[Rfam]
Nucleotides: 326
Stems, first nucleotide, its partner, number of pairs: 001326004009321008018312003036058004044049001060076007077081001089305007096297002100114002117153008125143001129139003156292004161222003166219002168215005175210003181204002186199005223241006242246001252279001262278006
Number, partner (000 for none) and nucleotide at each position: 001326c002325g003324a004323g005000a006000g007000a008000a009321c010320c011319c012318u013317c014316g015315u016314u017000a018312a019311g020310g021000a022000a023000c024000u025000u026000u027000g028000c029000a030000a031000c032000u033000u034000c035000a036058c037057c038056u039055c040000g041000u042000a043000a044049c045000u046000u047000c048000g049044g050000g051000a052000g053000a054000a055039g056038a057037g058036g059000a060076c061075c062074c063073g064072c065071c066070c067000u068000u069000u070066g071065g072064g073063c074062g075061g076060g077081c078000g079000c080000a081077g082000u083000g084000a085000a086000u087000a088000g089305g090304c091303c092302c093301u094300g095299g096297c097296g098000a099000c100114u101113g102000u103000u104000u105000a106000c107000c108000a109000a110000a111000a112000c113101c114100a115000c116000a117153g118152c119151a120150c121149u122148c123147u124146g125143c126000c127000a128000a129139c130138a131137c132000g133000c134000g135000a136000a137131g138130u139129g140000g141000a142000c143125g144000u145000a146124u147123a148122g149121g150120g151119u152118g153117u154000g155000a156292c157291g158290c159289c160000u161222g162221c163220c164000c165000g166219g167218u168215g169214c170213c171212g172211g173000a174000a175210g176209g177208u178000c179000a180000a181204a182203a183000g184000g185000a186199g187198c188197g189196g190195u191000g192000a193000g194000a195190g196189c197188u198187g199186c200000g201000a202000a203182u204181u205000g206000a207000a208177g209176c210175c211172c212171c213170g214169g215168u216000g217000a218167a219166c220163g221162g222161c223241g224240g225239c226238c227237g228236u229000a230000a231000c232000u233000a234000u235000a236228a237227c238226g239225g240224u241223c242246c243000u244000a245000a246242g247000g248000u249000a250000g251000c252279g253000a254000a255000a256000u257000u258000c259000c260000u261000u262278g263277u264276c265275g266274g267273g268000u269000a270000a271000g272000u273267u274266c275265c276264g277263a278262c279252c280000u281000g282000c283000a284000c285000g286000a287000a288000a289159g290158g291157c292156g293000u294000a295000a296097c297096g298000a299095u300094c301093a302092g303091g304090g305089c306000g307000c308000u309000g310020u311019c312018u313000c314016a315015a316014c317013g318012a319011g320010g321009g322000a323004c324003u325002c326001g
Annotation
Rfam assigns this 326-nucleotide part of an RNA from Deinococcus ruber to the family "Bacterial large subunit ribosomal RNA". It scores 2763 bits against the family's covariance model.